[Rfam]
Nucleotides: 044
Base pairs, nucleotide, nucleotide: 004041005040006039007038008037009036013034014033015032016031017030018029
Number, partner (000 for none) and nucleotide at each position: 001000a002000c003000a004041a005040u006039g007038u008037u009036c010000c011000g012000c013034u014033g015032c016031a017030u018029g019000u020000a021000g022000u023000u024000c025000c026000u027000a028000u029018u030017a031016u032015g033014c034013a035000a036009g037008a038007g039006c040005a041004u042000c043000u044000g